[Rfam]
RNA sequence: ACCUUCACAAAGGGGAGCCAGUGGCUGAGAGUGGGGAAACCCAGACCCUUCGAACCUGUUCGUUAAUACGAGCGUAGGAAUUGUGGAAGUCGAAUUU
Numbered sequence: 001a002c003c004u005u006c007a008c009a010a011a012g013g014g015g016a017g018c019c020a021g022u023g024g025c026u027g028a029g030a031g032u033g034g035g036g037a038a039a040c041c042c043a044g045a046c047c048c049u050u051c052g053a054a055c056c057u058g059u060u061c062g063u064u065a066a067u068a069c070g071a072g073c074g075u076a077g078g079a080a081u082u083g084u085g086g087a088a089g090u091c092g093a094a095u096u097u
Stems, first nucleotide, its partner, number of pairs: 006085005011049004017025003032043004055078004059072004
Description: A member of the RNA family "TPP riboswitch aptamer (THI element)" from Lacticaseibacillus saniviri, 97 nucleotides long. The family's consensus secondary structure is taken from published work.